[Rfam]
RNA sequence: GGCUCAUCCAGAGGGGCAGAGGGAACGGCCCGUUGAAGCCCCGGCAACCGGCGUCGAACGACGAUCCGCGCUGCACACGUUCGGAGUGUGCGCACGUCGACGGACCAGGUGCCAAUUCCGGCCCGCGCGAGCGGGACAGAUGAGGA
Numbered sequence: 001g002g003c004u005c006a007u008c009c010a011g012a013g014g015g016g017c018a019g020a021g022g023g024a025a026c027g028g029c030c031c032g033u034u035g036a037a038g039c040c041c042c043g044g045c046a047a048c049c050g051g052c053g054u055c056g057a058a059c060g061a062c063g064a065u066c067c068g069c070g071c072u073g074c075a076c077a078c079g080u081u082c083g084g085a086g087u088g089u090g091c092g093c094a095c096g097u098c099g100a101c102g103g104a105c106c107a108g109g110u111g112c113c114a115a116u117u118c119c120g121g122c123c124c125g126c127g128c129g130a131g132c133g134g135g136a137c138a139g140a141u142g143a144g145g146a
Stems, first nucleotide, its partner, number of pairs: 003144006013042005021031003026120003043113004048109002050105001052103001117138001122135005

SAM riboswitch aptamer (S box leader): a 146-nucleotide RNA from Pseudonocardia oroxyli.
The family is grouped with related families in Rfam's "SAM clan".
The match comes from Rfam's covariance-model search (75 bits).